[Rfam]
RNA sequence: AAGUGAAAUGAUGGCAAUCAUCGUUCAAGACUGACCUAAAAUGUAUACUCAUAACUGAUCACUU
Numbered sequence: 001a002a003g004u005g006a007a008a009u010g011a012u013g014g015c016a017a018u019c020a021u022c023g024u025u026c027a028a029g030a031c032u033g034a035c036c037u038a039a040a041a042u043g044u045a046u047a048c049u050c051a052u053a054a055c056u057g058a059u060c061a062c063u064u
Stems, first nucleotide, its partner, number of pairs: 001064006
Small nucleolar RNA SNORD2: a 64-nucleotide sequence from Pteropus alecto. A reference for the family is Zhou et al. (2004), "Identification of a novel box C/D snoRNA from mouse nucleolar cDNA library", Gene. A search with the family's covariance model found it, with a score of 66 bits. The family's RNA type in Rfam is C/D-box small nucleolar RNA.